[Rfam]
The family of this 105-nucleotide RNA sequence from Rhododendron simsii is "Small nucleolar RNA snoR100". Rfam 15.1 lists 1,851 matches to the family in 220 species. Its family is annotated with RNA processing and nucleolus in the Gene Ontology. By type it is an H/ACA-box small nucleolar RNA.
RNA sequence: GAAUGAAGGAAGCUUGGUAAUGUGCACAUAAAUUGAUUUGGGUCUCUAAGUCUGCCCUCUAUGCCCUUCGGCUUUGAUUUGGAGGCAUGGUUCCGCAGCAAAACG
Number, nucleotide and partner (000 for none) at each position: 001g000002a000003a000004u000005g000006a000007a000008g000009g000010a000011a000012g025013c024014u000015u022016g000017g000018u000019a000020a000021u000022g015023u000024g013025c012026a000027c000028a000029u000030a000031a000032a000033u000034u000035g000036a000037u000038u000039u000040g088041g000042g086043u085044c084045u000046c000047u000048a000049a000050g078051u077052c076053u000054g072055c071056c070057c000058u000059c000060u000061a000062u000063g000064c000065c000066c000067u000068u000069c000070g056071g055072c054073u000074u000075u000076g052077a051078u050079u000080u000081g000082g000083a000084g044085g043086c042087a000088u040089g000090g000091u000092u000093c000094c000095g000096c000097a000098g000099c000100a000101a000102a000103a000104c000105g000